Source information
A member of the RNA family "Lysine riboswitch aptamer" from Sporomusa silvacetica, 165 nucleotides long. The organism belongs to Sporomusa silvacetica, within Bacteria. The base pairs follow the family's consensus structure, which is taken from published work.
[Rfam]
RNA sequence: AGGUAUGGUAGAGGCGCGAGACGCAAUAGUACUACAGGGAGCUGGCUGCGAUGAACUGUAAGGAAAGGGCGGAUUGCCGAAAUGCUGGGAAUGCUAAUUCCCGGCAUUGGGGCCGUAUUCAACAGGUACGGCACUGUCAUCUUCGGAUGGUGAGCUAUCGCACGG
Dot-bracket structure: .....((((((....((((..(((.......((((((..................))))).)......)))..))))...((((((((((((....))))))))))))((.((((((((.....)))))))).)).(((((....)))))....)))))).....